[Rfam]
RNA sequence: CUUUGUAGUCUUCCACAGCUUUCUUGAACUGCGUUCAAAACCUAUACAGGAUUCAUUUCAGAUAGGCUUAUCUGCAGUUCAAUAAAGCUGUGGGAAAUUGCAGAGA
Numbered sequence: 001c002u003u004u005g006u007a008g009u010c011u012u013c014c015a016c017a018g019c020u021u022u023c024u025u026g027a028a029c030u031g032c033g034u035u036c037a038a039a040a041c042c043u044a045u046a047c048a049g050g051a052u053u054c055a056u057u058u059c060a061g062a063u064a065g066g067c068u069u070a071u072c073u074g075c076a077g078u079u080c081a082a083u084a085a086a087g088c089u090g091u092g093g094g095a096a097a098u099u100g101c102a103g104a105g106a
Base pairs, nucleotide, nucleotide: 003103004102005101006100007099013093014092015091017089018088019087020086021085022084024082025081026080027079029077030076031075032074033073
RNA: MIR396 microRNA precursor family
Organism: Rhynchospora breviuscula